[Rfam]
RNA sequence: CUGCAGUCACUUACGCUGCCCACGUUCUUGUUGCUGUAGAGCCUUGUGUGCAGCGGCUGCAAACAGUGGCCUCCUUGGUGUAGGGAACCAGCCUGCUGCCUCUGUAUGUGGCCUUAGGGACCUUGGAGACAUCC
Numbered sequence: 001c002u003g004c005a006g007u008c009a010c011u012u013a014c015g016c017u018g019c020c021c022a023c024g025u026u027c028u029u030g031u032u033g034c035u036g037u038a039g040a041g042c043c044u045u046g047u048g049u050g051c052a053g054c055g056g057c058u059g060c061a062a063a064c065a066g067u068g069g070c071c072u073c074c075u076u077g078g079u080g081u082a083g084g085g086a087a088c089c090a091g092c093c094u095g096c097u098g099c100c101u102c103u104g105u106a107u108g109u110g111g112c113c114u115u116a117g118g119g120a121c122c123u124u125g126g127a128g129a130c131a132u133c134c
Stems, first nucleotide, its partner, number of pairs: 002052004020046001022044001025041004077122003089111001091109002094106001
A member of the RNA family "Small nucleolar RNA SNORA70" from Erinaceus europaeus, 134 nucleotides long.
It is annotated as an H/ACA-box small nucleolar RNA.
Rfam's curators write: snoRNA U70 seems to be exclusive to mammals and is a member of the H/ACA class of snoRNA which contain H (ANANNA) and ACA box motifs. H/ACA box snoRNAs are involved in the conversion of uridines to pseudouridines (5-ribosyluracil) a constituent of structural RNAs (transfer, ribosomal, small nuclear, and small nucleolar).
The match comes from Rfam's covariance-model search (71 bits).
The source organism's lineage runs through Eukaryota, Metazoa, Sarcopterygii, Theria and Erinaceus.
The family has 43 seed sequences and 5,173 matches in Rfam 15.1.